[Rfam]
RNA sequence: GUAAGGAGCAACAACCAAUUUCUUGUUCUAUCAAGAGUAUUGGUAUUGCUCCUUUA
Numbered sequence: 001g002u003a004a005g006g007a008g009c010a011a012c013a014a015c016c017a018a019u020u021u022c023u024u025g026u027u028c029u030a031u032c033a034a035g036a037g038u039a040u041u042g043g044u045a046u047u048g049c050u051c052c053u054u055u056a
Stems, first nucleotide, its partner, number of pairs: 003054009013044001017040001020037006
The family of this 56-nucleotide sequence from Buxus microphylla is "Plastid-psbA-4 3UTR RNA". Lineage of the source: Eukaryota > Streptophyta > Tracheophyta > Buxaceae > Buxus. From the family's description: Plastid psbA-4 is a non-coding RNA (ncRNA) present in plastids. It is one of the family's seed sequences. The literature on the family includes a 2023 paper in Plant Commun by Richter et al., "Retrograde signaling in plants: A critical review focusing on the GUN pathway and beyond". Pairs were carried over by alignment from the consensus structure, which was predicted with LocARNA. Its Rfam clan is "Plastid-psbA 3UTR RNA clan".